[Rfam]
RNA: nuoG RNA
Organism: Rouxiella badensis
RNA sequence: GAAUUUUUGAUUAACGCUCACUGAAAGGUGAGCCUUGUGGAAG
Numbered sequence: 001g002a003a004u005u006u007u008u009g010a011u012u013a014a015c016g017c018u019c020a021c022u023g024a025a026a027g028g029u030g031a032g033c034c035u036u037g038u039g040g041a042a043g
Stems, first nucleotide, its partner, number of pairs: 016033007